[Rfam]
RNA sequence: GCUUCCCUGGCUUUAGCAGCACAAAAAUAUUGGCACCUGAGGGAAAGCCAUGCCAGUAUUGAGAGUGCUGCUCUAGACAGGGUAGC
Numbered sequence: 001g002c003u004u005c006c007c008u009g010g011c012u013u014u015a016g017c018a019g020c021a022c023a024a025a026a027a028u029a030u031u032g033g034c035a036c037c038u039g040a041g042g043g044a045a046a047g048c049c050a051u052g053c054c055a056g057u058a059u060u061g062a063g064a065g066u067g068c069u070g071c072u073c074u075a076g077a078c079a080g081g082g083u084a085g086c
Base pairs, nucleotide, nucleotide: 001086002085003084005082006081015072016071017070018069019068020067021066022065026060027059028058029057030056031055032054033053034052035051
RNA: mir-15 microRNA precursor family
Organism: Monodelphis domestica